Notes
Rfam assigns this 179-nucleotide RNA from Paenibacillus baekrokdamisoli to the family "c-di-AMP riboswitch aptamer (ydaO/yuaA leader)".
RNA sequence: UUGUCUUUAUCGCUGAGUCCUUCUCACGAAGGAGCGGGGGAACCAAAGGCAGCGUGCGGCGCGGUUAACGCGGUUUGCAUAGCAGCCAUGGGGUGAAUCAACUGGAUGUUUCCAGUCGUAGGGCGACUCUCACGCCCGAAUCCGACAGCUAACCUCGUAAGCGUAUAGGGAGAGGCGAC
Dot-bracket structure: ..........((((...((((((....))))))((((((....((...........................................))(((.....(.(((((......))))).)..((((.........))))...))).........)))))).))))................
The match comes from Rfam's covariance-model search (92 bits).